Overview
This 71-nucleotide RNA sequence from Cajanus cajan belongs to the Rfam family "Small nucleolar RNA Z105".
[Rfam]
RNA sequence: UUGGCAUGGUGAUGAUGUUUAUUGUCAUUUGAUAUUCAAAUGAAAAAAAUAUAUCCUCCUACUCAUUCUGA
Numbered sequence: 001u002u003g004g005c006a007u008g009g010u011g012a013u014g015a016u017g018u019u020u021a022u023u024g025u026c027a028u029u030u031g032a033u034a035u036u037c038a039a040a041u042g043a044a045a046a047a048a049a050u051a052u053a054u055c056c057u058c059c060u061a062c063u064c065a066u067u068c069u070g071a
Stems, first nucleotide, its partner, number of pairs: 006066004025048001029042001